[Rfam]
RNA sequence: AGCUUUGCACAGUGGCAGUAUUGUAGCCAAUGAGGUUUAUCCGAGGCGCAAUUAUUGCUAACUGAAAUACUAGUUGCAAGCUAAAAAGAAGGCAGUCUGCUCUUCUCAUUAUGCUUGCACAAUUUUUAACAAGUUAACUGAGUAAC
Numbered sequence: 001a002g003c004u005u006u007g008c009a010c011a012g013u014g015g016c017a018g019u020a021u022u023g024u025a026g027c028c029a030a031u032g033a034g035g036u037u038u039a040u041c042c043g044a045g046g047c048g049c050a051a052u053u054a055u056u057g058c059u060a061a062c063u064g065a066a067a068u069a070c071u072a073g074u075u076g077c078a079a080g081c082u083a084a085a086a087a088g089a090a091g092g093c094a095g096u097c098u099g100c101u102c103u104u105c106u107c108a109u110u111a112u113g114c115u116u117g118c119a120c121a122a123u124u125u126u127u128a129a130c131a132a133g134u135u136a137a138c139u140g141a142g143u144a145a146c
Stems, first nucleotide, its partner, number of pairs: 020052005026047003034042002073120001075119007084110001133146004